This 116-nucleotide RNA sequence from Molossus molossus belongs to the Rfam family "U4atac minor spliceosomal RNA".
On this family, see Lorkovic et al., RNA 2005: "Evolutionary conservation of minor U12-type spliceosome between plants and humans".
From the family's description: U4atac is an essential component of the minor U12-type spliceosome complex which is required for removal of the rarer class of eukaryotic introns (AT-AC, U12-type).
Rfam classes the family as a spliceosomal small nuclear RNA.
[Rfam]
RNA sequence: GCCAUCCUCUUCUUGGGGCUGUGUUACUGUCCAAUGAACGUCUAGUGAGGAUAAUUAAACAACACAUUCGCAUCAAUUAGAGAGGUCUGCUUUAUCUUAGUGCAAUUUUAGGGGGA
Numbered sequence: 001g002c003c004a005u006c007c008u009c010u011u012c013u014u015g016g017g018g019c020u021g022u023g024u025u026a027c028u029g030u031c032c033a034a035u036g037a038a039c040g041u042c043u044a045g046u047g048a049g050g051a052u053a054a055u056u057a058a059a060c061a062a063c064a065c066a067u068u069c070g071c072a073u074c075a076a077u078u079a080g081a082g083a084g085g086u087c088u089g090c091u092u093u094a095u096c097u098u099a100g101u102g103c104a105a106u107u108u109u110a111g112g113g114g115g116a
Base pairs, nucleotide, nucleotide: 006018007017008016009015021060022059024057026055028053029052030051031050032049038046039045070103071102072101073100075098078094079093080092081091082090